RNA sequence: GGUUAUCAUGGUACCGAUGCUGUAUAUCUGAAAGGUACAGUACUGUGAUAACUGA
Numbered sequence: 001g002g003u004u005a006u007c008a009u010g011g012u013a014c015c016g017a018u019g020c021u022g023u024a025u026a027u028c029u030g031a032a033a034g035g036u037a038c039a040g041u042a043c044u045g046u047g048a049u050a051a052c053u054g055a
Base pairs, nucleotide, nucleotide: 001053002052003051004050005049006048007047008046009045010044011043012042013041014040016038018037019036020035021034
A member of the RNA family "mir-101 microRNA precursor family" from Canis lupus, 55 nucleotides long.
The literature on the family includes a 2002 paper in Genes Dev by Mourelatos et al., "miRNPs: a novel class of ribonucleoproteins containing numerous microRNAs".
Gene Ontology terms of the family: RISC complex and miRNA-mediated post-transcriptional gene silencing.
The organism belongs to Canis lupus, within Eukaryota.
The base pairs follow the family's consensus structure, which was predicted with RNAalifold.